[Rfam]
RNA: Glycine riboswitch aptamer
Organism: Psychrilyobacter sp. S5
RNA sequence: GGACGAACCUCUGGAGAGACUUUUAAAUAAGUCACCGAAGGAGCAAACCUAAUUUAUUUUAGGCGAAUCUCUCAGGUAAAAAGGACAGUGGAAAUAUU
Numbered sequence: 001g002g003a004c005g006a007a008c009c010u011c012u013g014g015a016g017a018g019a020c021u022u023u024u025a026a027a028u029a030a031g032u033c034a035c036c037g038a039a040g041g042a043g044c045a046a047a048c049c050u051a052a053u054u055u056a057u058u059u060u061a062g063g064c065g066a067a068u069c070u071c072u073c074a075g076g077u078a079a080a081a082a083g084g085a086c087a088g089u090g091g092a093a094a095u096a097u098u
Stems, first nucleotide, its partner, number of pairs: 008091002011088003019032004034077003037073002041071003048063005